[Rfam]
RNA sequence: CGGGGAUGGAGUCCCCUGGGAAGCGAGCCGAGGUCCCCACCUCCUCGUAAAAAAGGUGGGACAAAGAAUAAGUGCCAACGAACCUGUUGCUGUUGCCGCUUAAUAGAUAAGCGGCCGUCCUCUCCGAAGUUGGCUGGGCUUCGGAAGAGGGCGUGAGAGAUCCAGCCUACCGAUUCGGGCUUCGCCUUCCGGCCUGAAUCGGGAAAUUUCAGGAAGGCUGUGGGAGAGGACACCCUGCCCGUGGGGGGUCCCCCCUGAAAUCGAAAACACGGGCUGCGCUCGGAGAAGCCCAGGGGCCUCCAUCUUCGGACGGGGGUUCGA
Numbered sequence: 001c002g003g004g005g006a007u008g009g010a011g012u013c014c015c016c017u018g019g020g021a022a023g024c025g026a027g028c029c030g031a032g033g034u035c036c037c038c039a040c041c042u043c044c045u046c047g048u049a050a051a052a053a054a055g056g057u058g059g060g061a062c063a064a065a066g067a068a069u070a071a072g073u074g075c076c077a078a079c080g081a082a083c084c085u086g087u088u089g090c091u092g093u094u095g096c097c098g099c100u101u102a103a104u105a106g107a108u109a110a111g112c113g114g115c116c117g118u119c120c121u122c123u124c125c126g127a128a129g130u131u132g133g134c135u136g137g138g139c140u141u142c143g144g145a146a147g148a149g150g151g152c153g154u155g156a157g158a159g160a161u162c163c164a165g166c167c168u169a170c171c172g173a174u175u176c177g178g179g180c181u182u183c184g185c186c187u188u189c190c191g192g193c194c195u196g197a198a199u200c201g202g203g204a205a206a207u208u209u210c211a212g213g214a215a216g217g218c219u220g221u222g223g224g225a226g227a228g229g230a231c232a233c234c235c236u237g238c239c240c241g242u243g244g245g246g247g248g249u250c251c252c253c254c255c256u257g258a259a260a261u262c263g264a265a266a267a268c269a270c271g272g273g274c275u276g277c278g279c280u281c282g283g284a285g286a287a288g289c290c291c292a293g294g295g296g297c298c299u300c301c302a303u304c305u306u307c308g309g310a311c312g313g314g315g316g317u318u319c320g321a
Stems, first nucleotide, its partner, number of pairs: 002307009013296008024282005029047005036060007095115008116153005121147001123145002126142003132167007170202006184218006219259001221257004231247001233245001237274003242269002